Source information
Shown here is a 174-nucleotide RNA sequence from Marivibrio halodurans, a member of the family "Manganese Mn2+ riboswitch aptamer (yybP-ykoY)".
[Rfam]
RNA sequence: UCUCCCGUCAUUGGGGAGUAGCCGCCCUCGUCGAAGAGGGGGAUGUAUCAACAAACUUGGGCCACGGCCCAUGGUACAUCCGGCUUCGGGCUUGGCGAGACCUUUGGCUUCGACCGCUGUCACGGAGAGGGCCGGGCAGAGGGGGUCGAGCCAAUGGUUCAUGUCCGCCCGGCC
Numbered sequence: 001u002c003u004c005c006c007g008u009c010a011u012u013g014g015g016g017a018g019u020a021g022c023c024g025c026c027c028u029c030g031u032c033g034a035a036g037a038g039g040g041g042g043a044u045g046u047a048u049c050a051a052c053a054a055a056c057u058u059g060g061g062c063c064a065c066g067g068c069c070c071a072u073g074g075u076a077c078a079u080c081c082g083g084c085u086u087c088g089g090g091c092u093u094g095g096c097g098a099g100a101c102c103u104u105u106g107g108c109u110u111c112g113a114c115c116g117c118u119g120u121c122a123c124g125g126a127g128a129g130g131g132c133c134g135g136g137c138a139g140a141g142g143g144g145g146u147c148g149a150g151c152c153a154a155u156g157g158u159u160c161a162u163g164u165c166c167g168c169c170c171g172g173c174c
Stems, first nucleotide, its partner, number of pairs: 026039003041081010058071005088173001
Taxonomically the source falls in Marivibrio (Bacteria, Pseudomonadati, Alphaproteobacteria, Aestuariispiraceae). The base pairs follow the family's consensus structure.